[Rfam]
Shown here is a 72-nucleotide RNA from Medicago truncatula, a member of the family "MIR2629 microRNA precursor family". The base pairs follow the family's consensus structure, which was predicted with RNAalifold. Rfam links the family to the GO terms RISC complex and miRNA-mediated post-transcriptional gene silencing.
RNA sequence: UGCCUAAGUUUUCCUCGGCAGUUAACUGCAGCCUGUUCUUUAAAAUUUCAGCAGUUAACUCCCGAGGGGCAU
Numbered sequence: 001u002g003c004c005u006a007a008g009u010u011u012u013c014c015u016c017g018g019c020a021g022u023u024a025a026c027u028g029c030a031g032c033c034u035g036u037u038c039u040u041u042a043a044a045a046u047u048u049c050a051g052c053a054g055u056u057a058a059c060u061c062c063c064g065a066g067g068g069g070c071a072u
Base pairs, nucleotide, nucleotide: 012068013067015065016064017063018062020060021059022058023057024056025055026054027053028052029051